[Rfam]
RNA sequence: AUGUGCAUUGCAGGGCAACUACUCCGUUGGCAGAGGGAUGGAUUGGAUAUGGCUGAUGGUAGCUUCCAUUUGAUCCCAUCCCUGUCUGCCAAAGGAGAUUUGCCCGGCGAUUCAACC
Numbered sequence: 001a002u003g004u005g006c007a008u009u010g011c012a013g014g015g016c017a018a019c020u021a022c023u024c025c026g027u028u029g030g031c032a033g034a035g036g037g038a039u040g041g042a043u044u045g046g047a048u049a050u051g052g053c054u055g056a057u058g059g060u061a062g063c064u065u066c067c068a069u070u071u072g073a074u075c076c077c078a079u080c081c082c083u084g085u086c087u088g089c090c091a092a093a094g095g096a097g098a099u100u101u102g103c104c105c106g107g108c109g110a111u112u113c114a115a116c117c
Stems, first nucleotide, its partner, number of pairs: 005113001007111003011107001013105006022097004028091007036083001
Dot-bracket structure: ....(.(((.(.((((((...((((..(((((((.(..............................................).)))))))..))))..)))))).).))).)....
Rfam assigns this 117-nucleotide RNA from Oryza punctata to the family "mir-399 microRNA precursor family". Its family is annotated with RISC complex and miRNA-mediated post-transcriptional gene silencing in the Gene Ontology. On this family, see Jones-Rhoades and Bartel, Mol Cell 2004: "Computational Identification of Plant MicroRNAs and Their Targets, Including a Stress-Induced miRNA".